Shown here is a 360-nucleotide part of an RNA from Psychrosphaera ytuae, a member of the family "Bacterial large subunit ribosomal RNA".
RNA sequence: UGAGAGAACUCGGGUGAAGGAACUAGGCAAAAUGGUACCGUAACUUCGGGAGAAGGUACGCCGGUGCUGGUGAUGAGACGCGCUCUCUAAGCUGGUGCCGGUCGCAGUGACCUGGUGGCUGCAACUGUUUAUUAAAAACACAGCACUCUGCUAAAUCGAAAGAUGACGUAUAGGGUGUGACACCUGCCCGGUGCCGGAAGGUUAAUUGAUUGGGUUAUCUUCGGAGAAGCUCAUGAUCGAAGCCCCGGUAAACGGCGGCCGUAACUAUAACGGUCCUAAGGUAGCGAAAUUCCUUGUCGGGUAAGUUCCGACCUGCACGAAUGGUGUAAUGAUGGCCACGCUGUCUCCACCCGAGACUCA
Numbered sequence: 001u002g003a004g005a006g007a008a009c010u011c012g013g014g015u016g017a018a019g020g021a022a023c024u025a026g027g028c029a030a031a032a033u034g035g036u037a038c039c040g041u042a043a044c045u046u047c048g049g050g051a052g053a054a055g056g057u058a059c060g061c062c063g064g065u066g067c068u069g070g071u072g073a074u075g076a077g078a079c080g081c082g083c084u085c086u087c088u089a090a091g092c093u094g095g096u097g098c099c100g101g102u103c104g105c106a107g108u109g110a111c112c113u114g115g116u117g118g119c120u121g122c123a124a125c126u127g128u129u130u131a132u133u134a135a136a137a138a139c140a141c142a143g144c145a146c147u148c149u150g151c152u153a154a155a156u157c158g159a160a161a162g163a164u165g166a167c168g169u170a171u172a173g174g175g176u177g178u179g180a181c182a183c184c185u186g187c188c189c190g191g192u193g194c195c196g197g198a199a200g201g202u203u204a205a206u207u208g209a210u211u212g213g214g215u216u217a218u219c220u221u222c223g224g225a226g227a228a229g230c231u232c233a234u235g236a237u238c239g240a241a242g243c244c245c246c247g248g249u250a251a252a253c254g255g256c257g258g259c260c261g262u263a264a265c266u267a268u269a270a271c272g273g274u275c276c277u278a279a280g281g282u283a284g285c286g287a288a289a290u291u292c293c294u295u296g297u298c299g300g301g302u303a304a305g306u307u308c309c310g311a312c313c314u315g316c317a318c319g320a321a322u323g324g325u326g327u328a329a330u331g332a333u334g335g336c337c338a339c340g341c342u343g344u345c346u347c348c349a350c351c352c353g354a355g356a357c358u359c360a
Base pairs, nucleotide, nucleotide: 001360002359003358004357009355010354011353012352013351014350015349016348018346019345020344035059036058037057038056039055044049060102061101062100063099064098065097066096067095068094069093070092071091103107115339116338117337118336119335120334121333122331123330126140127139128138143178144177145176146175147174148173149172150171151168155164156163157162181326182325183324184323186256187255188254191253192252193249194248195247196246197245200244201243202242211233212232213231214230215229218225219224257275258274259273260272261271262270276280286313296312297311298310299309300308301307
Pairs were carried over by alignment from the consensus structure, which is taken from published work.
The match comes from Rfam's covariance-model search (2860 bits).